[Rfam]
The record is a 116-nucleotide RNA sequence from Abrus precatorius, which matches "Small nucleolar RNA Z278" in Rfam. On this family, see Chen et al., Nucleic Acids Res 2003: "The high diversity of snoRNAs in plants: identification and comparative study of 120 snoRNA genes from Oryza sativa". snoZ278 is a C/D box small nucleolar RNA. Its methylation guide targets have not been reported.
RNA sequence: GCUGAUGAUGAUUCAAUCCAACUUGUAUGAGGUGUUGUGGAGCCAGGUCCCUGAUUUCAGGGAGAACCUACUUGGUGAAGCUACAUUCAUAUGAUAUUAAUGGGUUUGACUGAGGC
Numbered sequence: 001g002c003u004g005a006u007g008a009u010g011a012u013u014c015a016a017u018c019c020a021a022c023u024u025g026u027a028u029g030a031g032g033u034g035u036u037g038u039g040g041a042g043c044c045a046g047g048u049c050c051c052u053g054a055u056u057u058c059a060g061g062g063a064g065a066a067c068c069u070a071c072u073u074g075g076u077g078a079a080g081c082u083a084c085a086u087u088c089a090u091a092u093g094a095u096a097u098u099a100a101u102g103g104g105u106u107u108g109a110c111u112g113a114g115g116c
Base pairs, nucleotide, nucleotide: 001116002115003114049062050061051060052059053058
Dot-bracket structure: (((.............................................(((((....)))))...................................................)))